[Rfam]
RNA sequence: UGAUGACAGUCCCUUCCACUGCCUUGAGGGCUAGCACUAGAAUUUUAGGUCAUCAUAAAUUAAAAUUUGAUUUUCUUCACUCAGAGCAUAUUAGAAUAAUAGGAUUAUCUGUGUAUUCUUAGAAAAUUGAGGAAUGAAACAUUU
Numbered sequence: 001u002g003a004u005g006a007c008a009g010u011c012c013c014u015u016c017c018a019c020u021g022c023c024u025u026g027a028g029g030g031c032u033a034g035c036a037c038u039a040g041a042a043u044u045u046u047a048g049g050u051c052a053u054c055a056u057a058a059a060u061u062a063a064a065a066u067u068u069g070a071u072u073u074u075c076u077u078c079a080c081u082c083a084g085a086g087c088a089u090a091u092u093a094g095a096a097u098a099a100u101a102g103g104a105u106u107a108u109c110u111g112u113g114u115a116u117u118c119u120u121a122g123a124a125a126a127u128u129g130a131g132g133a134a135u136g137a138a139a140c141a142u143u144u
Stems, first nucleotide, its partner, number of pairs: 001055007014042003018038001020036003070135005081123002084120003088116003094110001096108003
RNA: Small nucleolar RNA SNORA79
Organism: Phyllostomus discolor